[Rfam]
The record is a 75-nucleotide RNA sequence from Streptomyces sp. SID8352, which matches "ASpks TB sRNA" in Rfam.
RNA sequence: CUUCAGGGAGCCCAGCCACAGCGGCCGGUCCGCAUCGCGGUCCUGACCGUAGGUGGCCAGGAGCGCCUGGGCCUC
Numbered sequence: 001c002u003u004c005a006g007g008g009a010g011c012c013c014a015g016c017c018a019c020a021g022c023g024g025c026c027g028g029u030c031c032g033c034a035u036c037g038c039g040g041u042c043c044u045g046a047c048c049g050u051a052g053g054u055g056g057c058c059a060g061g062a063g064c065g066c067c068u069g070g071g072c073c074u075c
Stems, first nucleotide, its partner, number of pairs: 015025003031071001033069001038065002043060003047056003
Dot-bracket structure: ..............(((.....))).....(.(....((...(((.(((....))).)))...))...).)....